[Rfam]
RNA sequence: CUUCACCGACCCCAGCAGAAGCGGCCGCUCACGCCCCUGCCCGUACGUGGCCAGCAACGCCUGCGCCUC
Numbered sequence: 001c002u003u004c005a006c007c008g009a010c011c012c013c014a015g016c017a018g019a020a021g022c023g024g025c026c027g028c029u030c031a032c033g034c035c036c037c038u039g040c041c042c043g044u045a046c047g048u049g050g051c052c053a054g055c056a057a058c059g060c061c062u063g064c065g066c067c068u069c
Base pairs, nucleotide, nucleotide: 015025016024028065030063032059033058037054038053039052041050042049043048

Description
Shown here is a 69-nucleotide sequence from Streptomyces humidus, a member of the family "ASpks TB sRNA". It is annotated as an antisense RNA. The literature on the family includes a 2009 paper in Mol Microbiol by Arnvig and Young, "Identification of small RNAs in Mycobacterium tuberculosis". A search with the family's covariance model found it, with a score of 68 bits.